This 65-nucleotide sequence from Cricetulus griseus belongs to the Rfam family "mir-344 microRNA precursor family". Gene Ontology terms of the family: miRNA-mediated post-transcriptional gene silencing and RISC complex. The family has 18 seed sequences and 339 matches in Rfam 15.1. A reference for the family is Chiang et al. (2010), "Mammalian microRNAs: experimental evaluation of novel and previously annotated genes", Genes Dev.
[Rfam]
RNA sequence: UUUUCAGUCAGGCUACUGACUAAUAUCCAGCUCUUGGCUGGAAUUAGUCAAACCCUGACUGUAAA
Numbered sequence: 001u002u003u004u005c006a007g008u009c010a011g012g013c014u015a016c017u018g019a020c021u022a023a024u025a026u027c028c029a030g031c032u033c034u035u036g037g038c039u040g041g042a043a044u045u046a047g048u049c050a051a052a053c054c055c056u057g058a059c060u061g062u063a064a065a
Stems, first nucleotide, its partner, number of pairs: 007059003011055002014052001017050008027041005